radC RNA: a 135-nucleotide RNA from Pseudomonas protegens. Rfam 15.1 lists 500 matches to the family in 142 species. The organism belongs to Pseudomonas protegens, within Bacteria.
[Rfam]
RNA sequence: CCAUUCCGGAUUGGUUCGCUGUCGUCGACAGCGCCUCCAAAGGAGCCAGGGUUUCAAGCUCCGGCGCGUCGCGCUAACCCACCCAAGAUCGCUUAGCACUCGGUAGCGCGAUCACAUCACCUAGUGAUGGAGUGC
Dot-bracket structure: ............(.(..((((((...))))))).)......(((((..[[.[.....)))))((((.....))))].]]............................(((....((((((...))))))...)))